[Rfam]
RNA sequence: UGGUUUCCUGCUUCAACAGUGCUUGAAUGAAUGA
Numbered sequence: 001u002g003g004u005u006u007c008c009u010g011c012u013u014c015a016a017c018a019g020u021g022c023u024u025g026a027a028u029g030a031a032u033g034a
Stems, first nucleotide, its partner, number of pairs: 001034001003032003008029001010028001012027005017021001
Dot-bracket structure: (.(((..(.(.((((((...).)))))))))).)
Overview:
The family of this 34-nucleotide RNA sequence from Chrysochloris asiatica is "Iron response element I". Taxonomically the source falls in Chrysochloris (Eukaryota, Bilateria, Theria, Afrotheria). Gene Ontology term of the family: response to iron ion. The family's RNA type in Rfam is cis-regulatory element. The base pairs follow the family's consensus structure, which is taken from published work.